About this RNA:
The record is a 282-nucleotide RNA from Nannospalax galili, which matches "Mason-Pfizer monkey virus packaging signal" in Rfam. Rfam links the family to the GO term viral genome packaging. By type it is a cis-regulatory element. The match comes from Rfam's covariance-model search (140 bits).
[Rfam]
RNA sequence: UGGCAUCCAGCGUGGGCCUGGAUACUGGGGGACAACGUGAGGGUCUAACGAUGAAGAAAAGAGGAAGGGGUGCGCACCUGAUCAAACAAUAGCUCGGAGACGUCGUGGUAGCCUGCUGUGACUGAGCCGACAGGUAAGUUGGUCGUUCAAUCAUGGGGCAAGAAUUGAGUCAGCAUCAGAAAUAUGUAAUACAGUUAAAAGAAGCUUUACAGGCAAGAGGAGUAAAGGUUACAACUGAGGAUUUAUUUCAUUUCUUUGAUUUUGUGAAAGACAUCUGCCCAU
Numbered sequence: 001u002g003g004c005a006u007c008c009a010g011c012g013u014g015g016g017c018c019u020g021g022a023u024a025c026u027g028g029g030g031g032a033c034a035a036c037g038u039g040a041g042g043g044u045c046u047a048a049c050g051a052u053g054a055a056g057a058a059a060a061g062a063g064g065a066a067g068g069g070g071u072g073c074g075c076a077c078c079u080g081a082u083c084a085a086a087c088a089a090u091a092g093c094u095c096g097g098a099g100a101c102g103u104c105g106u107g108g109u110a111g112c113c114u115g116c117u118g119u120g121a122c123u124g125a126g127c128c129g130a131c132a133g134g135u136a137a138g139u140u141g142g143u144c145g146u147u148c149a150a151u152c153a154u155g156g157g158g159c160a161a162g163a164a165u166u167g168a169g170u171c172a173g174c175a176u177c178a179g180a181a182a183u184a185u186g187u188a189a190u191a192c193a194g195u196u197a198a199a200a201g202a203a204g205c206u207u208u209a210c211a212g213g214c215a216a217g218a219g220g221a222g223u224a225a226a227g228g229u230u231a232c233a234a235c236u237g238a239g240g241a242u243u244u245a246u247u248u249c250a251u252u253u254c255u256u257u258g259a260u261u262u263u264g265u266g267a268a269a270g271a272c273a274u275c276u277g278c279c280c281a282u
Base pairs, nucleotide, nucleotide: 006030007029008028012025013024014023036050037049038048091135093133101124104120105119106118107117108116144158146157147156148155149154166209167208168207169205170204217257218256219255220254221253222252226244227243228242229241230240267282270279272277